[Rfam]
RNA: Plastid-psbA-1 3UTR RNA
RNA sequence: GUUGAAACUCCAUUUAUAAAUGGAUAAGACUUCGGUCUUAGUGUGUGCGAGUUCUUGUGAAAACUAAAAAAAGGAGCAAUAGCCCAUUUCUUGUUCUAUCAAGAGGGUCGGUAUUGCUCCUUUUUU
Numbered sequence: 001g002u003u004g005a006a007a008c009u010c011c012a013u014u015u016a017u018a019a020a021u022g023g024a025u026a027a028g029a030c031u032u033c034g035g036u037c038u039u040a041g042u043g044u045g046u047g048c049g050a051g052u053u054c055u056u057g058u059g060a061a062a063a064c065u066a067a068a069a070a071a072a073g074g075a076g077c078a079a080u081a082g083c084c085c086a087u088u089u090c091u092u093g094u095u096c097u098a099u100c101a102a103g104a105g106g107g108u109c110g111g112u113a114u115u116g117c118u119c120c121u122u123u124u125u126u
Base pairs, nucleotide, nucleotide: 009024010023011022012021013020070123071122072121073120074119075118076117077116078115079114080113081112088105089104090103091102092101